Small nucleolar RNA SNORD19: a 74-nucleotide sequence from Dasyornis broadbenti. The match comes from Rfam's covariance-model search (38 bits). The pairing is the family consensus, mapped onto this sequence. Its Rfam clan is "SNORD19 clan".
RNA sequence: GAAAAAUGAUGAUAUUUUCUGUGUCCUAUAAUCACAGUGAAGACCUCAGAUCCAACUCUGAUUUCACUCUAGUU
Numbered sequence: 001g002a003a004a005a006a007u008g009a010u011g012a013u014a015u016u017u018u019c020u021g022u023g024u025c026c027u028a029u030a031a032u033c034a035c036a037g038u039g040a041a042g043a044c045c046u047c048a049g050a051u052c053c054a055a056c057u058c059u060g061a062u063u064u065c066a067c068u069c070u071a072g073u074u
Base pairs, nucleotide, nucleotide: 001065002064003063004062